Shown here is an 81-nucleotide sequence from Zootermopsis nevadensis, a member of the family "Mammalian CPEB3 ribozyme". From the family's description: The mammalian CPEB3 ribozyme is a self cleaving RNA located in the second intron of the CPEB3 gene which belongs to a family of genes regulating messenger RNA polyadenylation. This ribozyme is highly conserved and found only in mammals. The CPEB3 ribozyme is structurally and biochemically related to the human hepatitis delta virus (HDV) ribozyme and the HDV ribozyme is proposed to have arisen from the human transcriptome. There is currently only one other known self cleaving ribozyme in mammals, the CoTC motif. Pairs were carried over by alignment from the consensus structure, which is taken from published work.

[Rfam]
RNA sequence: CGCGGAAAGGGGGUCACAGCAGGAGCGUUAAAUGUCGCGGUCCCGGUCGAACCCAUGUACUGAUGGGUCGUGAAUCCUGCU
Numbered sequence: 001c002g003c004g005g006a007a008a009g010g011g012g013g014u015c016a017c018a019g020c021a022g023g024a025g026c027g028u029u030a031a032a033u034g035u036c037g038c039g040g041u042c043c044c045g046g047u048c049g050a051a052c053c054c055a056u057g058u059a060c061u062g063a064u065g066g067g068u069c070g071u072g073a074a075u076c077c078u079g080c081u
Stems, first nucleotide, its partner, number of pairs: 010044006018081007025038003048070003052066002